sodF sRNA: a 94-nucleotide sequence from Streptomyces sp. WMMB 714. It scores 76 bits against the family's covariance model. The pairing is the family consensus, mapped onto this sequence.
[Rfam]
RNA sequence: GCCACCUGCCCCUCGUGAUCGUCUUCUCACCUUUCACAGGGCAGGCGGGAAAAGAGGGAGGGCCCCGUACGGACGUGACGUACGGGGCCCUCCU
Numbered sequence: 001g002c003c004a005c006c007u008g009c010c011c012c013u014c015g016u017g018a019u020c021g022u023c024u025u026c027u028c029a030c031c032u033u034u035c036a037c038a039g040g041g042c043a044g045g046c047g048g049g050a051a052a053a054g055a056g057g058g059a060g061g062g063c064c065c066c067g068u069a070c071g072g073a074c075g076u077g078a079c080g081u082a083c084g085g086g087g088c089c090c091u092c093c094u
Stems, first nucleotide, its partner, number of pairs: 002049002005045007015037004021031001056094016
Description:
Rfam 15.1 lists 336 matches to the family in 317 species. A reference for the family is Kim et al. (2014), "Inverse regulation of Fe- and Ni-containing SOD genes by a Fur family regulator Nur through small RNA processed from 3'UTR of the sodF mRNA", Nucleic Acids Res.